[Rfam]
RNA sequence: AUAGUCUCCUUUGUGUGUUUGGCAUUCUCGCUAUUAGUCUUAAAAAGAUGAGAGUCUGCCCCUAAGAGGGAGCUUAUGACUGGAAUUUUUGGCUUUUUUUGGGGCCAUAGGUUAAAAGAGACGCUCACUUGGGA
Numbered sequence: 001a002u003a004g005u006c007u008c009c010u011u012u013g014u015g016u017g018u019u020u021g022g023c024a025u026u027c028u029c030g031c032u033a034u035u036a037g038u039c040u041u042a043a044a045a046a047g048a049u050g051a052g053a054g055u056c057u058g059c060c061c062c063u064a065a066g067a068g069g070g071a072g073c074u075u076a077u078g079a080c081u082g083g084a085a086u087u088u089u090u091g092g093c094u095u096u097u098u099u100u101g102g103g104g105c106c107a108u109a110g111g112u113u114a115a116a117a118g119a120g121a122c123g124c125u126c127a128c129u130u131g132g133g134a
Base pairs, nucleotide, nucleotide: 003075004074006072007071008070009069010068021060022059023058024057027054028053029052037049038048039047040046090107091106092105093104094103095102